RNA sequence: UGGCUCCAGAAAUCAAGGGUGGGUAAGACCUUGUAGGAUAACUGGCAGGCGACCCAUACUUGGUUUCAGGGGCUG
Numbered sequence: 001u002g003g004c005u006c007c008a009g010a011a012a013u014c015a016a017g018g019g020u021g022g023g024u025a026a027g028a029c030c031u032u033g034u035a036g037g038a039u040a041a042c043u044g045g046c047a048g049g050c051g052a053c054c055c056a057u058a059c060u061u062g063g064u065u066u067c068a069g070g071g072g073c074u075g
Stems, first nucleotide, its partner, number of pairs: 002074006009067006016060002021055004029049003

Shown here is a 75-nucleotide sequence from Gallus gallus, a member of the family "mir-551 microRNA precursor family". For this family Rfam cites "Conservation of small RNA pathways in platypus" (Murchison et al., Genome Res, 2008). Rfam 15.1 lists 1,097 matches to the family in 627 species. Gene Ontology terms of the family: RISC complex and miRNA-mediated post-transcriptional gene silencing.